Notes:
A member of the RNA family "Group II catalytic intron D1-D4-7" from Acidovorax sp. HDW3, 150 nucleotides long. The base pairs follow the family's consensus structure. The match comes from Rfam's covariance-model search (110 bits). Group II introns are found in rRNA, tRNA and mRNA of organelles in fungi, plants and protists, and also in mRNA in bacteria.

Nucleotides: 150
Stems, first nucleotide, its partner, number of pairs: 002019006028069005033060009043050002083094004095120004104111002124143006
Number, partner (000 for none) and nucleotide at each position: 001000c002019c003018u004017c005016g006015c007014g008000u009000g010000c011000g012000a013000c014007c015006g016005c017004g018003a019002g020000u021000a022000g023000c024000c025000u026000a027000g028069a029068g030067u031066g032065g033060c034059a035058u036057g037056c038055a039054g040053g041052g042000a043050c044049a045000g046000u047000a048000a049044u050043g051000a052041c053040c054039c055038u056037g057036u058035g059034u060033g061000a062000a063000g064000c065032c066031c067030a068029c069028u070000c071000a072000a073000c074000a075000a076000u077000g078000a079000a080000c081000c082000c083094c084093u085092a086091c087000u088000u089000c090000g091086g092085u093084a094083g095120c096119a097118g098117c099000u100000a101000c102000g103000c104111c105110c106000g107000c108000g109000a110105g111104g112000g113000u114000g115000u116000a117098g118097c119096u120095g121000g122000a123000a124143g125142c126141u127140g128139c129138c130000a131000g132000c133000a134000g135000a136000a137000a138129g139128g140127c141126g142125g143124c144000c145000g146000a147000g148000g149000g150000g